[Rfam]
RNA sequence: AAGCAUUACAGCUCUUUUACAAUGUGUCUAGCAGUUUUUCAAGUCCUCACGGGAAGACCCC
Numbered sequence: 001a002a003g004c005a006u007u008a009c010a011g012c013u014c015u016u017u018u019a020c021a022a023u024g025u026g027u028c029u030a031g032c033a034g035u036u037u038u039u040c041a042a043g044u045c046c047u048c049a050c051g052g053g054a055a056g057a058c059c060c061c
Stems, first nucleotide, its partner, number of pairs: 034058007043050002

Notes
Rfam assigns this 61-nucleotide sequence from Propithecus coquereli to the family "U7 small nuclear RNA". It scores 40 bits against the family's covariance model. The literature on the family includes a 1994 paper in Nucleic Acids Res by Spycher et al., "3' end processing of mouse histone pre-mRNA: evidence for additional base-pairing between U7 snRNA and pre-mRNA". Animal histone pre-mRNAs are spliced by a different mechanism than nuclear pre-mRNAs and self-splicing introns. This processing involves the U7 snRNP, which contains only one RNA species: U7. The 5' end of U7 RNA is thought to base-pair to a conserved spacer element downstream of the cleavage site in histone pre-mRNA. This family contains a number of annotated U7 pseudogenes. The family's consensus secondary structure was predicted with PFOLD. The source organism's lineage runs through Eukaryota, Eumetazoa, Bilateria, Tetrapoda and Propithecus.